[Rfam]
Shown here is a 132-nucleotide RNA sequence from Odocoileus virginianus, a member of the family "Small nucleolar RNA SNORA71". Rfam 15.1 lists 1,805 matches to the family in 606 species. Rfam links the family to the GO terms RNA processing and nucleolus. On this family, see Ganot et al., Genes Dev 1997: "The family of box ACA small nucleolar RNAs is defined by an evolutionarily conserved secondary structure and ubiquitous sequence elements essential for RNA accumulation". By type it is an H/ACA-box small nucleolar RNA. The match comes from Rfam's covariance-model search (97 bits). The base pairs follow the family's consensus structure, which was predicted with PFOLD. The members of this family belong to the H/ACA class of snoRNAs which bind a number of proteins (including dyskerin, Gar1p and Nop10p) to form snoRNP complexes. This class of snoRNAs are thought to guide the sites of modification of uridines to pseudouridines by forming direct base pairing interactions with substrate RNAs. This family includes U71 (SNORA71), ACA39 (SNORA39) and ACA60 (SNORA60). U71 and ACA60 are predicted to guide the pseudouridylation of U406 and U1004 in 18S rRNA respectively.
RNA sequence: UCCUGCGUCGAAAGUGAUCCUGGGCUGCCUGUGCCCUGGUCACUGAUACCGGAGGGAGAGGAGUUGCUGACAGAUCUUUCCCCGUGUUUGAAGAGCCUAGCCAUCCGUUCCAAACCCUGGAGUUUUCACACA
Numbered sequence: 001u002c003c004u005g006c007g008u009c010g011a012a013a014g015u016g017a018u019c020c021u022g023g024g025c026u027g028c029c030u031g032u033g034c035c036c037u038g039g040u041c042a043c044u045g046a047u048a049c050c051g052g053a054g055g056g057a058g059a060g061g062a063g064u065u066g067c068u069g070a071c072a073g074a075u076c077u078u079u080c081c082c083c084g085u086g087u088u089u090g091a092a093g094a095g096c097c098u099a100g101c102c103a104u105c106c107g108u109u110c111c112a113a114a115c116c117c118u119g120g121a122g123u124u125u126u127c128a129c130a131c132a
Stems, first nucleotide, its partner, number of pairs: 001056004006051002013044007022036004066129001068128003072125004086115005091109002095105001